A member of the RNA family "t44 RNA" from Marinibactrum halimedae, 100 nucleotides long. A search with the family's covariance model found it, with a score of 70 bits. By type it is a small RNA. The family's consensus secondary structure was predicted with LocARNA. The organism belongs to Marinibactrum, within Bacteria. On this family, see Tjaden et al., Nucleic Acids Res 2002: "Transcriptome analysis of Escherichia coli using high-density oligonucleotide probe arrays".
RNA sequence: AGACAUCUACUAAAUUGUCACACAUACACCGACACAGAUACCUGGGUGCCUGUCUUAAUAAAUAAGAGUGGUUGGUAUUUGGGGUGUAUGGAGGCUCAAC
Numbered sequence: 001a002g003a004c005a006u007c008u009a010c011u012a013a014a015u016u017g018u019c020a021c022a023c024a025u026a027c028a029c030c031g032a033c034a035c036a037g038a039u040a041c042c043u044g045g046g047u048g049c050c051u052g053u054c055u056u057a058a059u060a061a062a063u064a065a066g067a068g069u070g071g072u073u074g075g076u077a078u079u080u081g082g083g084g085u086g087u088a089u090g091g092a093g094g095c096u097c098a099a100c
Stems, first nucleotide, its partner, number of pairs: 023090008035081008048072003